[Rfam]
RNA sequence: ACGAUGUUCCGCUGCAAGAGUUCUCUUAUAUAUGAGUGCAAGAGCGUCCG
Numbered sequence: 001a002c003g004a005u006g007u008u009c010c011g012c013u014g015c016a017a018g019a020g021u022u023c024u025c026u027u028a029u030a031u032a033u034g035a036g037u038g039c040a041a042g043a044g045c046g047u048c049c050g
Stems, first nucleotide, its partner, number of pairs: 003048007013040004
Dot-bracket structure: ..(((((((...((((....................)))).)))))))..
RNA: Ribosomal protein L19 leader
Organism: Niallia nealsonii